Annotation: This 581-nucleotide part of an RNA from an uncultured Verrucomicrobiota bacterium belongs to the Rfam family "Bacterial large subunit ribosomal RNA". Pairs were carried over by alignment from the consensus structure, which is taken from published work. The literature on the family includes a 2001 paper in Science by Yusupov et al., "Crystal structure of the ribosome at 5.5 A resolution". Clan: LSU clan.
[Rfam]
RNA sequence: CCCGCAGCAGGACGGAAAGACCCUAUGCACCUUUACUGUACGCUGUAACUGUGGUCCUUAACCCUUUGCCUAGAGUAAGUGGGAGACUGUGAACCUGUCCCUCCGGGGGCAGGGGAGUCGCCAAUGAAACACCACCCUUAGGGUUGAGGGCCUCUAAUCUGGAUUUUUCUCCAGAGAACAUUGCAGUCGGUCAGUUUUACUGGGGCGGUAUCCUCCUAAAGAGUAACGGAGGAGUGCGAAGGUUGGCUCAGCCCGGUCAGCAAUCGGGUGACGAGUACAUGGAUAUAAGCCAGCCUAACUGCAAGACCUACAAGUCGCGCAGAUGCGAAAGCAGGCCCAAGUGAUCCGGUGACGGAAUGUGGAAUCGUCAUCGCUCAACGGACAAAAGGUACGCUAGGGAUAACAGGCUGAUCCUGCCCAAGAGCUCAUAUCGACGGCAGGGUUUGGCACCUCGAUGUCGGCUCAUCACAUCCUGGGGCUGGAGAAGGUCCCAAGGGUCCGGCUGUUCGCCGGUUAAAGUGGUACGCGAGCUGGGUUCAGAACGUCGCGAGACAGUUCGGUCCUUAUCCGCUGUGGGCCCA
Numbered sequence: 001c002c003c004g005c006a007g008c009a010g011g012a013c014g015g016a017a018a019g020a021c022c023c024u025a026u027g028c029a030c031c032u033u034u035a036c037u038g039u040a041c042g043c044u045g046u047a048a049c050u051g052u053g054g055u056c057c058u059u060a061a062c063c064c065u066u067u068g069c070c071u072a073g074a075g076u077a078a079g080u081g082g083g084a085g086a087c088u089g090u091g092a093a094c095c096u097g098u099c100c101c102u103c104c105g106g107g108g109g110c111a112g113g114g115g116a117g118u119c120g121c122c123a124a125u126g127a128a129a130c131a132c133c134a135c136c137c138u139u140a141g142g143g144u145u146g147a148g149g150g151c152c153u154c155u156a157a158u159c160u161g162g163a164u165u166u167u168u169c170u171c172c173a174g175a176g177a178a179c180a181u182u183g184c185a186g187u188c189g190g191u192c193a194g195u196u197u198u199a200c201u202g203g204g205g206c207g208g209u210a211u212c213c214u215c216c217u218a219a220a221g222a223g224u225a226a227c228g229g230a231g232g233a234g235u236g237c238g239a240a241g242g243u244u245g246g247c248u249c250a251g252c253c254c255g256g257u258c259a260g261c262a263a264u265c266g267g268g269u270g271a272c273g274a275g276u277a278c279a280u281g282g283a284u285a286u287a288a289g290c291c292a293g294c295c296u297a298a299c300u301g302c303a304a305g306a307c308c309u310a311c312a313a314g315u316c317g318c319g320c321a322g323a324u325g326c327g328a329a330a331g332c333a334g335g336c337c338c339a340a341g342u343g344a345u346c347c348g349g350u351g352a353c354g355g356a357a358u359g360u361g362g363a364a365u366c367g368u369c370a371u372c373g374c375u376c377a378a379c380g381g382a383c384a385a386a387a388g389g390u391a392c393g394c395u396a397g398g399g400a401u402a403a404c405a406g407g408c409u410g411a412u413c414c415u416g417c418c419c420a421a422g423a424g425c426u427c428a429u430a431u432c433g434a435c436g437g438c439a440g441g442g443u444u445u446g447g448c449a450c451c452u453c454g455a456u457g458u459c460g461g462c463u464c465a466u467c468a469c470a471u472c473c474u475g476g477g478g479c480u481g482g483a484g485a486a487g488g489u490c491c492c493a494a495g496g497g498u499c500c501g502g503c504u505g506u507u508c509g510c511c512g513g514u515u516a517a518a519g520u521g522g523u524a525c526g527c528g529a530g531c532u533g534g535g536u537u538c539a540g541a542a543c544g545u546c547g548c549g550a551g552a553c554a555g556u557u558c559g560g561u562c563c564u565u566a567u568c569c570g571c572u573g574u575g576g577g578c579c580c581a
Base pairs, nucleotide, nucleotide: 001577002576003575004574005573006572007571008570010569011568012567014564015563022398023397024396025395027394028393029390030389031388032387033386035195036194037193038192042187043186044185045184046183047182048181051154053152054151055150056149057148058147059146060145061144062143063142064141065140068137079135080134081133082132085119086118087117094113095112096111097110098109099108100107101106158175159174160173161172162171163170198210199209200208201207211233212232213231214230215229216228234379236336237335242294243293244292245291246290247289248274249273251269252268253267254266255265256264275284276283299322300321301320302319305316306315307314324333325332326331347373348372349371350370351369352368353367355366356365407448408447409446411445412442413441414440415439416438417437418436422432423431459534460532461531462530463529464526465523466522467521468520469519472497473496475492476491477490478489479488480487499513500512501511502510503509540558541557542556543555544553545552546551